[Rfam]
The record is a 104-nucleotide RNA from Halobacillus yeomjeoni, which matches "SAM riboswitch aptamer (S box leader)" in Rfam. The organism belongs to Halobacillus, within Bacteria.
RNA sequence: UCCUUAUAAAGAGUCGGGGGAGGAAACUGGUCUAUUGAUCCCGCAGCAACCUCUUUUCAUCGAGAAGGUGCUAAAUCCAGCAGACGUAGUCUGAAAGAUGAGGA
Number, nucleotide and partner (000 for none) at each position: 001u104002c103003c102004u101005u100006a099007u098008a000009a000010a000011g000012a000013g044014u000015c043016g042017g041018g040019g000020g000021a000022g033023g032024a031025a000026a000027c080028u079029g078030g077031u024032c023033u022034a000035u000036u000037g000038a000039u000040c018041c017042c016043g015044c013045a072046g071047c070048a069049a000050c068051c067052u065053c064054u063055u062056u000057u000058c000059a000060u000061c000062g055063a054064g053065a052066a000067g051068g050069u048070g047071c046072u045073a000074a000075a000076u096077c030078c029079a028080g027081c093082a092083g091084a090085c089086g000087u000088a000089g085090u084091c083092u082093g081094a000095a000096a076097g000098a007099u006100g005101a004102g003103g002104a001